Annotation: The record is an 80-nucleotide RNA from Thiogranum longum, which matches "SAH (S-adenosyl-L-homocysteine) riboswitch aptamer" in Rfam. Lineage of the source: Bacteria > Pseudomonadati > Pseudomonadota > Gammaproteobacteria > Thiogranum.
[Rfam]
RNA sequence: UUCCCCGAGGGGCGCUGCAGCGGGCGAUGCCCGCCAGGCUCGGGGAAACCAGCAUCUCAAAACAACGGCGCUCGACCUUA
Numbered sequence: 001u002u003c004c005c006c007g008a009g010g011g012g013c014g015c016u017g018c019a020g021c022g023g024g025c026g027a028u029g030c031c032c033g034c035c036a037g038g039c040u041c042g043g044g045g046a047a048a049c050c051a052g053c054a055u056c057u058c059a060a061a062a063c064a065a066c067g068g069c070g071c072u073c074g075a076c077c078u079u080a
Base pairs, nucleotide, nucleotide: 002046003045004044005043006042007041008040021033022032023031024030025029